[Rfam]
RNA sequence: GACAAGAAAGAUGGCAAUAUGUUGGCAUAGCAGGUUCUCACUUCAACAGCUAUGCCAGCAUCUUGCCUCCUUUCCAGCAC
Numbered sequence: 001g002a003c004a005a006g007a008a009a010g011a012u013g014g015c016a017a018u019a020u021g022u023u024g025g026c027a028u029a030g031c032a033g034g035u036u037c038u039c040a041c042u043u044c045a046a047c048a049g050c051u052a053u054g055c056c057a058g059c060a061u062c063u064u065g066c067c068u069c070c071u072u073u074c075c076a077g078c079a080c
Base pairs, nucleotide, nucleotide: 006074007073008072009071010070013067014066015065016064017063019061020060021059023057024056025055026054027053028052029051030050031049